[Rfam]
RNA sequence: GGAGUUGACUAGACAGUCGCUGCUUUAUUAUUGCCAUUUAUAAUGGUAAAAGGUAGAGGGGAGGAAAGUCCGGGCUCCAUAGGGCAGGGUGCCAGGUAAUACAUGGGGGGUGUAAACCUACGACAAGUGCAACAGAAAACAAACCACCGAUGGCCUGUAUAUGCAGGAUCAGGUAAGGGUGAAAUGGUGCGGUAAGAGCGCACCGCACAACUGGUAACAGUUAGUGGCACGGUAAACUCCACCUGGAGCAAAGCUAAAUAGAGAUUCGCAUGGUACGGCCCGUACUGAAUCUGGGUAGGCUGCUUGAGUCAGUGCGUGAGCAUUGACCUAGAUGAAUGACUGUCCACGACAGAACCCGGCUUAACGGUCAACUCCAUUC
Numbered sequence: 001g002g003a004g005u006u007g008a009c010u011a012g013a014c015a016g017u018c019g020c021u022g023c024u025u026u027a028u029u030a031u032u033g034c035c036a037u038u039u040a041u042a043a044u045g046g047u048a049a050a051a052g053g054u055a056g057a058g059g060g061g062a063g064g065a066a067a068g069u070c071c072g073g074g075c076u077c078c079a080u081a082g083g084g085c086a087g088g089g090u091g092c093c094a095g096g097u098a099a100u101a102c103a104u105g106g107g108g109g110g111u112g113u114a115a116a117c118c119u120a121c122g123a124c125a126a127g128u129g130c131a132a133c134a135g136a137a138a139a140c141a142a143a144c145c146a147c148c149g150a151u152g153g154c155c156u157g158u159a160u161a162u163g164c165a166g167g168a169u170c171a172g173g174u175a176a177g178g179g180u181g182a183a184a185u186g187g188u189g190c191g192g193u194a195a196g197a198g199c200g201c202a203c204c205g206c207a208c209a210a211c212u213g214g215u216a217a218c219a220g221u222u223a224g225u226g227g228c229a230c231g232g233u234a235a236a237c238u239c240c241a242c243c244u245g246g247a248g249c250a251a252a253g254c255u256a257a258a259u260a261g262a263g264a265u266u267c268g269c270a271u272g273g274u275a276c277g278g279c280c281c282g283u284a285c286u287g288a289a290u291c292u293g294g295g296u297a298g299g300c301u302g303c304u305u306g307a308g309u310c311a312g313u314g315c316g317u318g319a320g321c322a323u324u325g326a327c328c329u330a331g332a333u334g335a336a337u338g339a340c341u342g343u344c345c346a347c348g349a350c351a352g353a354a355c356c357c358g359g360c361u362u363a364a365c366g367g368u369c370a371a372c373u374c375c376a377u378u379c
Base pairs, nucleotide, nucleotide: 001375002374003373004372005371006370007369008368009367010366012344013343014342015341016340017339018338020061021060023058024057025056026055027054028053066362067361068360070359071358072357073356074355075248076247077246078245082281083280084279085278087244088243089242090241091240092106093105094104096102107121108119109118110117111116122239123238127237128236129233130232144178145177146174147173148172151171152170153169155167156166186204187203188202189201190200191199205228206226207225208224210222211220212219213218252301253300254299255298262292263291264290265289266288267287272286273285274284275283276282308327309326310325311324312323313322314321315320
RNA: Bacterial RNase P class A
Organism: Candidatus Gullanella endobia